RNA sequence: CUGUCCACUGCGUUCGCGUGAGUUUUAUAUUUCCUUGAACCGAUGCUUUCGCGAGCAAGGGCUUGGAACAUUGCAGAGCUGGUGUGAGCGUCUCGCGUCAGAUGAACCCGAAGCCCUGCUGACCUCGCCCACCUGUACCCCUAGGGUUCAGGAAUGCGGCUCACGGUUCGCCGUGGACACC
Numbered sequence: 001c002u003g004u005c006c007a008c009u010g011c012g013u014u015c016g017c018g019u020g021a022g023u024u025u026u027a028u029a030u031u032u033c034c035u036u037g038a039a040c041c042g043a044u045g046c047u048u049u050c051g052c053g054a055g056c057a058a059g060g061g062c063u064u065g066g067a068a069c070a071u072u073g074c075a076g077a078g079c080u081g082g083u084g085u086g087a088g089c090g091u092c093u094c095g096c097g098u099c100a101g102a103u104g105a106a107c108c109c110g111a112a113g114c115c116c117u118g119c120u121g122a123c124c125u126c127g128c129c130c131a132c133c134u135g136u137a138c139c140c141c142u143a144g145g146g147u148u149c150a151g152g153a154a155u156g157c158g159g160c161u162c163a164c165g166g167u168u169c170g171c172c173g174u175g176g177a178c179a180c181c
Base pairs, nucleotide, nucleotide: 002179003178004177005176006175007174008173010171011170012169015166017165018164019163031154032153033152034151036150037149038148039147040146041145059130060129061128065124066123070120073119074118075117076116078114079113084108089104090103091102092101093100